Streptomyces RNA 3202: a 91-nucleotide sequence from Streptomyces minutiscleroticus. On this family, see Vockenhuber et al., RNA Biol 2011: "Deep sequencing-based identification of small non-coding RNAs in Streptomyces coelicolor". It is annotated as a small RNA.
RNA sequence: CCGAGUCCCGUCGCACUCCCCCCGGCGUACGGGACUCUCCCGGGCCGAGCUCCGCCGCCACUCCCCCCUGGUGCCGGAGUUCGGCCCAAAU
Numbered sequence: 001c002c003g004a005g006u007c008c009c010g011u012c013g014c015a016c017u018c019c020c021c022c023c024g025g026c027g028u029a030c031g032g033g034a035c036u037c038u039c040c041c042g043g044g045c046c047g048a049g050c051u052c053c054g055c056c057g058c059c060a061c062u063c064c065c066c067c068c069u070g071g072u073g074c075c076g077g078a079g080u081u082c083g084g085c086c087c088a089a090a091u
Base pairs, nucleotide, nucleotide: 005035006034007033008032009031010030012027013026014025042087043086044085045084046083047082048081049080050079051078053076054075056073057072058071059070060069